Shown here is a 178-nucleotide RNA from Serratia sp. DD3, a member of the family "Manganese Mn2+ riboswitch aptamer (yybP-ykoY)". A reference for the family is Barrick et al. (2004), "New RNA motifs suggest an expanded scope for riboswitches in bacterial genetic control", Proc Natl Acad Sci U S A. Rfam links the family to the GO term manganese ion binding. The organism belongs to Serratia, within Bacteria.

[Rfam]
RNA sequence: AGCGCGCUUAUUGGGGAGUAGCCGGUUUCUGGCUGUUUAUAGCGAGAAACGCCCGUAUCAACAUGCUCGUUUCGUUUGAAACGUGGUGCGGGCAGCCGAAAGGUUGGCAAGACCAUAAACACGUAACACCAUCGGUAGGUUGGGGGAUGGCUUACGUGUCUAUGGCGCUACCCAACCG
Number, nucleotide and partner (000 for none) at each position: 001a000002g000003c000004g000005c000006g000007c000008u000009u000010a000011u000012u000013g000014g000015g000016g000017a000018g000019u000020a000021g000022c000023c000024g000025g050026u049027u048028u047029c046030u045031g000032g000033c000034u000035g000036u000037u000038u000039a000040u000041a000042g000043c000044g000045a030046g029047a028048a027049a026050c025051g093052c092053c091054c090055g089056u088057a087058u086059c085060a084061a000062c000063a000064u000065g000066c000067u000068c083069g082070u081071u080072u079073c000074g000075u000076u000077u000078g000079a072080a071081a070082c069083g068084u060085g059086g058087u057088g056089c055090g054091g053092g052093c051094a000095g000096c000097c000098g000099a000100a000101a000102g000103g000104u000105u000106g000107g000108c000109a000110a000111g000112a000113c000114c000115a000116u000117a000118a000119a000120c000121a000122c000123g000124u000125a000126a000127c000128a000129c000130c000131a000132u000133c000134g000135g000136u000137a000138g000139g000140u000141u000142g000143g000144g000145g000146g000147a000148u000149g000150g000151c000152u000153u000154a000155c000156g000157u000158g000159u000160c000161u000162a000163u000164g000165g000166c000167g000168c000169u000170a000171c000172c000173c000174a000175a000176c000177c000178g000